Shown here is a 65-nucleotide RNA from Eucalyptus grandis, a member of the family "Small nucleolar RNA U49".
Taxonomically the source falls in Eucalyptus (Eukaryota, Spermatophyta, eudicotyledons, Gunneridae).
Rfam 15.1 lists 340 matches to the family in 152 species.
The family's consensus secondary structure was predicted with CMfinder.
The match comes from Rfam's covariance-model search (46 bits).
The literature on the family includes a 2001 paper in RNA by Brown et al., "Multiple snoRNA gene clusters from Arabidopsis".
[Rfam]
RNA sequence: UCCCGAUGAGGAAGCACACCCUUAAAGAUAGGAAGUGCCGUAUGACACUCCAAAACGGCGAGCGG
Numbered sequence: 001u002c003c004c005g006a007u008g009a010g011g012a013a014g015c016a017c018a019c020c021c022u023u024a025a026a027g028a029u030a031g032g033a034a035g036u037g038c039c040g041u042a043u044g045a046c047a048c049u050c051c052a053a054a055a056c057g058g059c060g061a062g063c064g065g
Stems, first nucleotide, its partner, number of pairs: 014059002032051001034049004